[Rfam]
RNA sequence: CCCUAGCCCUGAUAGUAGCGGAAAUCCUUGGCCUUUUUUCUUUAAAAAGGACAAGAUUGUAGCGGAUAGCAGGAAAUAGC
Numbered sequence: 001c002c003c004u005a006g007c008c009c010u011g012a013u014a015g016u017a018g019c020g021g022a023a024a025u026c027c028u029u030g031g032c033c034u035u036u037u038u039u040c041u042u043u044a045a046a047a048a049g050g051a052c053a054a055g056a057u058u059g060u061a062g063c064g065g066a067u068a069g070c071a072g073g074a075a076a077u078a079g080c
Stems, first nucleotide, its partner, number of pairs: 009072003013068002018063002023058004029053002033049006
A member of the RNA family "Flavo-1 RNA" from Flavobacterium sp. KMS, 80 nucleotides long. The family's RNA type in Rfam is small RNA. It scores 77 bits against the family's covariance model.